A member of the RNA family "L25-Gammaproteobacteria ribosomal protein leader" from Eudromia elegans, 26 nucleotides long.
Taxonomically the source falls in Eudromia (Eukaryota, Opisthokonta, Deuterostomia, Palaeognathae).
On this family, see Eckert and Weinberg, BMC Microbiol 2020: "Discovery of 20 novel ribosomal leader candidates in bacteria and archaea".

RNA sequence: ACUGCUGCUCGGUCGCAGGCAGCAGU
Numbered sequence: 001a002c003u004g005c006u007g008c009u010c011g012g013u014c015g016c017a018g019g020c021a022g023c024a025g026u
Stems, first nucleotide, its partner, number of pairs: 001026008011016001